RNA sequence: GCCCGUUUGGCUUAGCGGUAAAGCGCAUCACUAGUACUUGUUCCCAAGUGAUAAUGAUGAGAUCCUAGGUUCGAUUCCUAGAACGGGCA
Numbered sequence: 001g002c003c004c005g006u007u008u009g010g011c012u013u014a015g016c017g018g019u020a021a022a023g024c025g026c027a028u029c030a031c032u033a034g035u036a037c038u039u040g041u042u043c044c045c046a047a048g049u050g051a052u053a054a055u056g057a058u059g060a061g062a063u064c065c066u067a068g069g070u071u072c073g074a075u076u077c078c079u080a081g082a083a084c085g086g087g088c089a
Stems, first nucleotide, its partner, number of pairs: 001088007010024004026059005065081005

Background:
tRNA: an 89-nucleotide RNA from Botryotinia narcissicola. Rfam 15.1 lists 5,335,975 matches to the family in 14,413 species. Lineage of the source: Eukaryota > Opisthokonta > Ascomycota > leotiomyceta > Botryotinia. Transfer RNA (tRNA) molecules are approximately 80 nucleotides in length. By type it is a transfer RNA. Pairs were carried over by alignment from the consensus structure, which is taken from published work.